The record is a 240-nucleotide sequence from Triticum aestivum, which matches "RNase MRP" in Rfam.
By type it is a ribozyme.
A search with the family's covariance model found it, with a score of 85 bits.
About the family: RNase MRP is an enzymatically active ribonucleoprotein with two distinct roles in eukaryotes. In mitochondria it plays a direct role in the initiation of mitochondrial DNA replication.
The family is grouped with related families in Rfam's "RNaseP clan".
RNA sequence: UAGCCACAGGAUGAAGUGAGCGGGCCUAACAAGCCCUGGAAAGUCCCCGGGCCCCAUGCGCAGCGAUGCGCCCACGGAGACGUGGACGGCCCAUGAGCCGGCCCUCCCUGCCUCGGCGGGGGGCUGAGACGAGUGUGGAGCCCUAAUCACAGGGGGCCGGCUCUGGGUCAAUUGGCUAAUCUCACAGUUAUUCACUUGUUCCAAAUGGAUUAACAGAACGGGGCUUACACUCCUGUGGCA
Numbered sequence: 001u002a003g004c005c006a007c008a009g010g011a012u013g014a015a016g017u018g019a020g021c022g023g024g025c026c027u028a029a030c031a032a033g034c035c036c037u038g039g040a041a042a043g044u045c046c047c048c049g050g051g052c053c054c055c056a057u058g059c060g061c062a063g064c065g066a067u068g069c070g071c072c073c074a075c076g077g078a079g080a081c082g083u084g085g086a087c088g089g090c091c092c093a094u095g096a097g098c099c100g101g102c103c104c105u106c107c108c109u110g111c112c113u114c115g116g117c118g119g120g121g122g123g124c125u126g127a128g129a130c131g132a133g134u135g136u137g138g139a140g141c142c143c144u145a146a147u148c149a150c151a152g153g154g155g156g157c158c159g160g161c162u163c164u165g166g167g168u169c170a171a172u173u174g175g176c177u178a179a180u181c182u183c184a185c186a187g188u189u190a191u192u193c194a195c196u197u198g199u200u201c202c203a204a205a206u207g208g209a210u211u212a213a214c215a216g217a218a219c220g221g222g223g224c225u226u227a228c229a230c231u232c233c234u235g236u237g238g239c240a
Stems, first nucleotide, its partner, number of pairs: 003239009014197006022036004041226003045223004059070004072085005088169003097161006106154004121143004131136001200209003